[Rfam]
The record is a 120-nucleotide RNA from Akkermansia muciniphila, which matches "TPP riboswitch aptamer (THI element)" in Rfam. Lineage of the source: Bacteria > Pseudomonadati > Verrucomicrobiota > Akkermansiaceae > Akkermansia muciniphila.

RNA sequence: CCAGUUCGGCAGGGGUGCCCAAAUAAAGGCUGAGAUUGCAGGAACGGCAUGCUGUUCCCGCAGAACCCUUCAAACCUGAUGCGAAUAAUUCCGCCGCAGGGAGUUCGAUUGAACGGGCUU
Numbered sequence: 001c002c003a004g005u006u007c008g009g010c011a012g013g014g015g016u017g018c019c020c021a022a023a024u025a026a027a028g029g030c031u032g033a034g035a036u037u038g039c040a041g042g043a044a045c046g047g048c049a050u051g052c053u054g055u056u057c058c059c060g061c062a063g064a065a066c067c068c069u070u071c072a073a074a075c076c077u078g079a080u081g082c083g084a085a086u087a088a089u090u091c092c093g094c095c096g097c098a099g100g101g102a103g104u105u106c107g108a109u110u111g112a113a114c115g116g117g118c119u120u
Stems, first nucleotide, its partner, number of pairs: 006108004011069004016063001017030003037062003041058007075100004081094003